[Rfam]
The record is a 120-nucleotide sequence from Waterburya agarophytonicola, which matches "Guanidine-I riboswitch aptamer" in Rfam.
A search with the family's covariance model found it, with a score of 83 bits.
RNA sequence: CGAGAUGGCUUCUAGGGUUCCGAUUUAUAGCAAUGCUAAUAAAUGCUGGUCCGAGAGAAGCAGGCUACUUAGAACGGUAAUUAUUAAGUAGCUCCACGGAGGGACAAAAGCCCGGGAGGA
Dot-bracket structure: .......(((((..((...(((((((((..........)))))).).)).))....))))).((((((((((...........)))))))))).(.[...(((.......))).)..]..
The organism belongs to Waterburya agarophytonicola, within Bacteria.